Rfam assigns this 405-nucleotide RNA sequence from Mycolicibacterium aurum to the family "Bacterial RNase P class A". Clan: RNaseP clan. Rfam links the family to the GO terms ribonuclease P activity, tRNA processing and dimeric ribonuclease P complex.
[Rfam]
RNA sequence: UGAGCUGGCUGGGCGGCCGCGGCAUCGAAAGUGUCGAGGAAAGUCCGGACUUCGCAGAGCAGGGUGAUUGCUAACCGCAAUCCGAGGCGACUCGCGGGAAAGUGCCACAGAAAACAGACCGCCGCCAUAGUGCUUUCGGGUGCUGUGGCGGUAAGGGUGAAAAGGUGCGGUAAGAGCGCACCAGCACUCCGGGUGACCGGAGUGGCUAGGCAAACCCCACCCGAAGCAAGGCCAAGAAGGCCGCAACCUGGUUGCGGCCGCGCAGGCGUUCGAGGGCUGCUCGCCCGAGCCUGCGGGUAGGCCGCUUGAGGCACCCGGCAACGGUGUGUCCAGAUGGAUGGUCGCCGCUUCGCCGCCAGUCAUGGCGGCGAGGAACAGAAUCCGGCUUACAGGCCAGCUCAUCCG
Numbered sequence: 001u002g003a004g005c006u007g008g009c010u011g012g013g014c015g016g017c018c019g020c021g022g023c024a025u026c027g028a029a030a031g032u033g034u035c036g037a038g039g040a041a042a043g044u045c046c047g048g049a050c051u052u053c054g055c056a057g058a059g060c061a062g063g064g065u066g067a068u069u070g071c072u073a074a075c076c077g078c079a080a081u082c083c084g085a086g087g088c089g090a091c092u093c094g095c096g097g098g099a100a101a102g103u104g105c106c107a108c109a110g111a112a113a114a115c116a117g118a119c120c121g122c123c124g125c126c127a128u129a130g131u132g133c134u135u136u137c138g139g140g141u142g143c144u145g146u147g148g149c150g151g152u153a154a155g156g157g158u159g160a161a162a163a164g165g166u167g168c169g170g171u172a173a174g175a176g177c178g179c180a181c182c183a184g185c186a187c188u189c190c191g192g193g194u195g196a197c198c199g200g201a202g203u204g205g206c207u208a209g210g211c212a213a214a215c216c217c218c219a220c221c222c223g224a225a226g227c228a229a230g231g232c233c234a235a236g237a238a239g240g241c242c243g244c245a246a247c248c249u250g251g252u253u254g255c256g257g258c259c260g261c262g263c264a265g266g267c268g269u270u271c272g273a274g275g276g277c278u279g280c281u282c283g284c285c286c287g288a289g290c291c292u293g294c295g296g297g298u299a300g301g302c303c304g305c306u307u308g309a310g311g312c313a314c315c316c317g318g319c320a321a322c323g324g325u326g327u328g329u330c331c332a333g334a335u336g337g338a339u340g341g342u343c344g345c346c347g348c349u350u351c352g353c354c355g356c357c358a359g360u361c362a363u364g365g366c367g368g369c370g371a372g373g374a375a376c377a378g379a380a381u382c383c384g385g386c387u388u389a390c391a392g393g394c395c396a397g398c399u400c401a402u403c404c405g
Stems, first nucleotide, its partner, number of pairs: 001401010011390001012346007020036006041388003045385005050226004057282004062222005067081005082096001083094004097217002102215002104211003119156002121152014164182006184206001185204008230303004262294006274286004310330005315324003
Taxonomically the source falls in Mycobacterium (subgen. Mycolicibacterium) (Bacteria, Actinomycetes, Mycobacteriales, Mycobacteriaceae).
Rfam classes the family as a ribozyme.